The family of this 271-nucleotide sequence from Ascodesmis nigricans is "Fungal signal recognition particle RNA". The family's consensus secondary structure is taken from published work. NCBI's taxonomy places the organism under Eukaryota, Fungi, Dikarya, Ascodesmidaceae, Ascodesmis. On this family, see Regalia et al., Nucleic Acids Res 2002: "Prediction of signal recognition particle RNA genes". It is annotated as a non-coding RNA gene. The family is grouped with related families in Rfam's "SRP clan". The family has 50 seed sequences and 748 matches in Rfam 15.1.

Nucleotides: 271
Stems, first nucleotide, its partner, number of pairs: 003013002018267004023262001026259006033252002041247014066228001069226010079213005084207003088202006095195002103139001106138001108136002110133002113131005119126002142148002152192003156189002160187001162185003169178003
Number, partner (000 for none) and nucleotide at each position: 001000u002000u003013g004012c005000u006000g007000u008000c009000a010000u011000g012004g013003c014000u015000c016000a017000a018267u019266g020265g021264u022000u023262g024000a025000a026259g027258c028257u029256c030255g031254c032000a033252c034251a035000c036000a037000u038000g039000u040000g041247c042246g043245u044244g045243g046242c047241c048240c049239u050238u051237u052236u053235c054234c055000a056000a057000g058000a059000a060000u061000c062000a063000u064000c065000g066228u067000c068000a069226a070225c071224a072223u073222u074221g075220g076219u077218g078217u079213c080212c081211g082210g083209u084207u085206c086205g087000a088202a089201u090200c091199u092198c093197g094000u095195g096194g097000u098000g099000g100000u101000c102000u103139c104000a105000u106138u107000a108136u109135u110133u111132g112000u113131a114130u115129g116128c117127u118000u119126g120125c121000g122000u123000a124000a125120g126119c127117a128116g129115c130114g131113u132111u133110g134000c135109a136108g137000g138106g139103g140000a141000c142148u143147c144000u145000a146000a147143g148142a149000g150000c151000u152192g153191a154190g155000a156189a157188a158000c159000a160187u161000c162185c163184u164183u165000c166000a167000g168000g169178g170177a171176a172000g173000c174000a175000a176171u177170u178169c179000u180000g181000c182000a183164g184163a185162g186000a187160g188157u189156u190154c191153u192152c193000c194096c195095c196000u197093c198092g199091a200090g201089a202088u203000g204000g205086c206085g207084g208000c209083g210082c211081u212080g213079g214000a215000u216000u217078g218077c219076a220075c221074u222073g223072a224071u225070g226069u227000u228066g229000g230000c231000g232000u233000u234054g235053g236052g237051a238050a239049g240048g241047g242046g243045u244044u245043g246042c247041g248000u249000a250000u251034u252033g253000c254031g255030c256029g257028g258027g259026c260000a261000a262023c263000u264021a265020c266019c267018g268000u269000c270000u271000u